[Rfam]
RNA sequence: UAGCCUGAAAUGAUGUUCUGAGUUCAUGUCUCUUCUCUGAGAUGUGUCAUGAGGACAGCCAGAUGCAUUUCUGAUCAGGCUU
Numbered sequence: 001u002a003g004c005c006u007g008a009a010a011u012g013a014u015g016u017u018c019u020g021a022g023u024u025c026a027u028g029u030c031u032c033u034u035c036u037c038u039g040a041g042a043u044g045u046g047u048c049a050u051g052a053g054g055a056c057a058g059c060c061a062g063a064u065g066c067a068u069u070u071c072u073g074a075u076c077a078g079g080c081u082u
Base pairs, nucleotide, nucleotide: 002081003080004079005078
The record is an 82-nucleotide RNA from Xiphorhynchus elegans, which matches "Small nucleolar RNA SNORD111" in Rfam. The organism belongs to Xiphorhynchus, within Eukaryota. For this family Rfam cites "Purified box C/D snoRNPs are able to reproduce site-specific 2'-O-methylation of target RNA in vitro" (Galardi et al., Mol Cell Biol, 2002). It scores 48 bits against the family's covariance model.